[Rfam]
RNA sequence: AGAAUUCGGAGCGGCCUCCUCCUCCUCCCAAUAGCCGCUUCGAUGUGACUGACGUUCAUCCUCCUCCCGAGCGUCAGUCUUCCAAAAUGGCGCCCACCGGAUCCUCCUCCCCCGGUGGGCGUUAUUU
Numbered sequence: 001a002g003a004a005u006u007c008g009g010a011g012c013g014g015c016c017u018c019c020u021c022c023u024c025c026u027c028c029c030a031a032u033a034g035c036c037g038c039u040u041c042g043a044u045g046u047g048a049c050u051g052a053c054g055u056u057c058a059u060c061c062u063c064c065u066c067c068c069g070a071g072c073g074u075c076a077g078u079c080u081u082c083c084a085a086a087a088u089g090g091c092g093c094c095c096a097c098c099g100g101a102u103c104c105u106c107c108u109c110c111c112c113c114g115g116u117g118g119g120c121g122u123u124a125u126u127u
Base pairs, nucleotide, nucleotide: 007042008041009040011038012037013036014035015034047079048078049077050076051075052074053073054072055071056070090122091121092120093119094118095117096116097115098114099113100112
Annotation: A member of the RNA family "Alphaproteobacterial ar14" from Parahoeflea phototrophica, 127 nucleotides long. Rfam 15.1 lists 784 matches to the family in 332 species. The base pairs follow the family's consensus structure. Rfam's curators put it in the seed alignment.